Shown here is a 126-nucleotide RNA sequence from Cuscuta australis, a member of the family "MIR397 microRNA precursor family". On this family, see Mica et al., BMC Genomics 2009: "High throughput approaches reveal splicing of primary microRNA transcripts and tissue specific expression of mature microRNAs in Vitis vinifera". The match comes from Rfam's covariance-model search (57 bits). The organism belongs to Cuscuta sect. Cleistogrammica, within Eukaryota.

RNA sequence: CUUAGAGAUACGAUUGAGUGCAGCGUUGAUAAAUGUGCAAUGGCCACGUCUAUAUACUAUAUGCACAACCAUAUUCGUGUUAUUGCUUGCAAUAAUUCAUCAACAUUGCACUCAAUCGUGUCUUUG
Numbered sequence: 001c002u003u004a005g006a007g008a009u010a011c012g013a014u015u016g017a018g019u020g021c022a023g024c025g026u027u028g029a030u031a032a033a034u035g036u037g038c039a040a041u042g043g044c045c046a047c048g049u050c051u052a053u054a055u056a057c058u059a060u061a062u063g064c065a066c067a068a069c070c071a072u073a074u075u076c077g078u079g080u081u082a083u084u085g086c087u088u089g090c091a092a093u094a095a096u097u098c099a100u101c102a103a104c105a106u107u108g109c110a111c112u113c114a115a116u117c118g119u120g121u122c123u124u125u126g
Base pairs, nucleotide, nucleotide: 006123007122008121009120010119011118013116014115015114016113017112018111019110020109021108022107023106025104026103027102028101030099032097033096034095
The family has 7 seed sequences and 496 matches in Rfam 15.1.